[Rfam]
6S / SsrS RNA: a 177-nucleotide sequence from Candidatus Nitrotoga sp. AM1P. Pairs were carried over by alignment from the consensus structure, which is taken from published work. The match comes from Rfam's covariance-model search (59 bits). Taxonomically the source falls in Candidatus Nitrotoga (Bacteria, Pseudomonadati, Nitrosomonadales, Gallionellaceae).
RNA sequence: UUUCCCCUGCGGUGUUUGUCAGGCUCAUAAUUCUUUGGACCAAUAAGCUUUGCUUAGGUUGUGACCCUUAAUGUUACUGUUGUGCGCAUCCCUUGUGGAUGUACCUGAUGUAACUGGGAAUCGGCUCUCUUGAACUCAGGUUCAAGAUGUUGGGUCAACGGCACAGGCGGGGGUCUU
Numbered sequence: 001u002u003u004c005c006c007c008u009g010c011g012g013u014g015u016u017u018g019u020c021a022g023g024c025u026c027a028u029a030a031u032u033c034u035u036u037g038g039a040c041c042a043a044u045a046a047g048c049u050u051u052g053c054u055u056a057g058g059u060u061g062u063g064a065c066c067c068u069u070a071a072u073g074u075u076a077c078u079g080u081u082g083u084g085c086g087c088a089u090c091c092c093u094u095g096u097g098g099a100u101g102u103a104c105c106u107g108a109u110g111u112a113a114c115u116g117g118g119a120a121u122c123g124g125c126u127c128u129c130u131u132g133a134a135c136u137c138a139g140g141u142u143c144a145a146g147a148u149g150u151u152g153g154g155u156c157a158a159c160g161g162c163a164c165a166g167g168c169g170g171g172g173g174u175c176u177u
Base pairs, nucleotide, nucleotide: 004173005172006171007170008169009168010167012164013163014162015161017160018159019158032147033146034145036144037143038142039141040140041139057127058125060123061122065118067117073114074113075112076111077110082104083103087101088100089099090098091097